[Rfam]
RNA sequence: AUGGGAUCUGUGAUGGUGUUCUAAAACUGCGUUAUCUAUCUGUAGUUUCUUCAAAAGAACUGAAGAUAAUCGUAAUCUACUGAGAUCUUGU
Numbered sequence: 001a002u003g004g005g006a007u008c009u010g011u012g013a014u015g016g017u018g019u020u021c022u023a024a025a026a027c028u029g030c031g032u033u034a035u036c037u038a039u040c041u042g043u044a045g046u047u048u049c050u051u052c053a054a055a056a057g058a059a060c061u062g063a064a065g066a067u068a069a070u071c072g073u074a075a076u077c078u079a080c081u082g083a084g085a086u087c088u089u090g091u
Stems, first nucleotide, its partner, number of pairs: 001091007
Dot-bracket structure: (((((((.............................................................................)))))))
Rfam assigns this 91-nucleotide sequence from Vigna radiata to the family "Small nucleolar RNA snoR27". The family is grouped with related families in Rfam's "snR68 clan".